[Rfam]
RNA sequence: AUGGACAUUGAGUCAAUAAAGACUGAGAAGAUUGACUCAAGAACAAA
Numbered sequence: 001a002u003g004g005a006c007a008u009u010g011a012g013u014c015a016a017u018a019a020a021g022a023c024u025g026a027g028a029a030g031a032u033u034g035a036c037u038c039a040a041g042a043a044c045a046a047a
Stems, first nucleotide, its partner, number of pairs: 008040001010038008
The family of this 47-nucleotide RNA sequence from Eucalyptus grandis is "Plastid-rpl16 group II-D1 intron".
Rfam's curators write: Plastid-rpl16 is a non-coding RNA (ncRNA) recognised in plastids.
On this family, see Richter et al., Plant Commun 2023: "Retrograde signaling in plants: A critical review focusing on the GUN pathway and beyond".
The family's consensus secondary structure was predicted with LocARNA.
The family has 538 seed sequences and 1,446 matches in Rfam 15.1.